Shown here is a 114-nucleotide sequence, a member of the family "drum RNA". Rfam's curators write: Firmicutes, Bacteroidetes (1 example), Proteobacteria (2 examples), Spirochaetes (2 examples). Pairs were carried over by alignment from the consensus structure, which is taken from published work.
RNA sequence: UGGCAUUGAAGCGGUUGACUGUGUCGGUAUGCAGCCUGCUGUGGAGCCUGACCGUGGGUUAUGCGGUAACCACAAACCGGAUAGAUUCUUUGGAGUCGAACGAAAACGCUUAAA
Number, nucleotide and partner (000 for none) at each position: 001u000002g048003g047004c046005a000006u000007u000008g000009a000010a000011g042012c041013g040014g039015u038016u000017g036018a000019c034020u033021g032022u031023g000024u080025c079026g078027g077028u000029a000030u000031g022032c021033a020034g019035c000036c017037u000038g015039c014040u013041g012042u011043g000044g000045a000046g004047c003048c002049u000050g000051a000052c000053c000054g000055u000056g000057g000058g000059u000060u000061a000062u000063g109064c108065g107066g000067u000068a000069a000070c000071c000072a000073c000074a000075a000076a000077c027078c026079g025080g024081a000082u000083a000084g097085a096086u095087u094088c000089u000090u000091u000092g000093g000094a087095g086096u085097c084098g000099a000100a000101c000102g000103a000104a000105a000106a000107c065108g064109c063110u000111u000112a000113a000114a000